RNA sequence: GGCUGUGAUAUUGUCCUGUCACAGCAGUACUUUAAUUUUACGUACUACUGUGUCGGGACGGUAACCAUAGAC
Numbered sequence: 001g002g003c004u005g006u007g008a009u010a011u012u013g014u015c016c017u018g019u020c021a022c023a024g025c026a027g028u029a030c031u032u033u034a035a036u037u038u039u040a041c042g043u044a045c046u047a048c049u050g051u052g053u054c055g056g057g058a059c060g061g062u063a064a065c066c067a068u069a070g071a072c
Base pairs, nucleotide, nucleotide: 003070004069005068006067012060013059014058015057016056017055018054022050023049024048026046027045028044029043
The family of this 72-nucleotide RNA from Bemisia tabaci is "mir-1000 microRNA precursor family".
NCBI's taxonomy places the organism under Eukaryota, Protostomia, Altocrustacea, Hemiptera, Bemisia.
It scores 57 bits against the family's covariance model.